Background
A member of the RNA family "L31-Actinobacteria ribosomal protein leader" from Mycobacterium triviale, 47 nucleotides long. A search with the family's covariance model found it, with a score of 50 bits.

RNA sequence: CAGGUUCCGGUUCACGCCCGAUGCGUUGGUCGGGCGACCCGGCGGCC
Number, nucleotide and partner (000 for none) at each position: 001c000002a000003g047004g046005u045006u000007c042008c041009g040010g039011u000012u000013c000014a000015c036016g035017c034018c033019c032020g031021a030022u029023g000024c000025g000026u000027u000028g000029g022030u021031c020032g019033g018034g017035c016036g015037a000038c000039c010040c009041g008042g007043c000044g000045g005046c004047c003